[Rfam]
RNA sequence: CGCCAUGCUUCCAUGGGACCUGCCAGUGUGUGGCAGCCUCCCUUCCUACUCAUGGCAGAGCAACAGGCCGCCUUGCCUCUUGGCAUAGCUCCCACCAUUCAAUUGGGGCGAGACUCUGACUUGGGCAAGGAACAGUU
Numbered sequence: 001c002g003c004c005a006u007g008c009u010u011c012c013a014u015g016g017g018a019c020c021u022g023c024c025a026g027u028g029u030g031u032g033g034c035a036g037c038c039u040c041c042c043u044u045c046c047u048a049c050u051c052a053u054g055g056c057a058g059a060g061c062a063a064c065a066g067g068c069c070g071c072c073u074u075g076c077c078u079c080u081u082g083g084c085a086u087a088g089c090u091c092c093c094a095c096c097a098u099u100c101a102a103u104u105g106g107g108g109c110g111a112g113a114c115u116c117u118g119a120c121u122u123g124g125g126c127a128a129g130g131a132a133c134a135g136u137u
Base pairs, nucleotide, nucleotide: 002056003055004054005053006052007051015042016041017040018039020036021035022034023033024032074134075133080128081127082126084123085122089112090111091110095106096105097104
The record is a 137-nucleotide RNA sequence from Salvator merianae, which matches "Small nucleolar RNA SNORA24" in Rfam. The family's RNA type in Rfam is H/ACA-box small nucleolar RNA.